RNA: Wolbachia sRNA 46
Organism: Trichonephila clavata
RNA sequence: GUUUGGGCCACCAGUAGGGUGUCAUCCCAGUGCGUGACACUGGGAUCCAGCUUCUAUGCAACUUAAUUAAAAACGUUUGUUUUAGCGUAAGACAACUACCUUUAGCUCAUCAGCUCAGUUAUAAGCAAAAUUCCUGGAUUCCAGUGUCAAGCACUGGAAUGACACCAUUUGCUGUGCAAUUU
Numbered sequence: 001g002u003u004u005g006g007g008c009c010a011c012c013a014g015u016a017g018g019g020u021g022u023c024a025u026c027c028c029a030g031u032g033c034g035u036g037a038c039a040c041u042g043g044g045a046u047c048c049a050g051c052u053u054c055u056a057u058g059c060a061a062c063u064u065a066a067u068u069a070a071a072a073a074c075g076u077u078u079g080u081u082u083u084a085g086c087g088u089a090a091g092a093c094a095a096c097u098a099c100c101u102u103u104a105g106c107u108c109a110u111c112a113g114c115u116c117a118g119u120u121a122u123a124a125g126c127a128a129a130a131u132u133c134c135u136g137g138a139u140u141c142c143a144g145u146g147u148c149a150a151g152c153a154c155u156g157g158a159a160u161g162a163c164a165c166c167a168u169u170u171g172c173u174g175u176g177c178a179a180u181u182u
Base pairs, nucleotide, nucleotide: 012176013175020164021163022162023161024160025159027157028156029155030154031153032152033151035149036148037147038146039145040144041143042142043141044140045139046138047137048136049135050134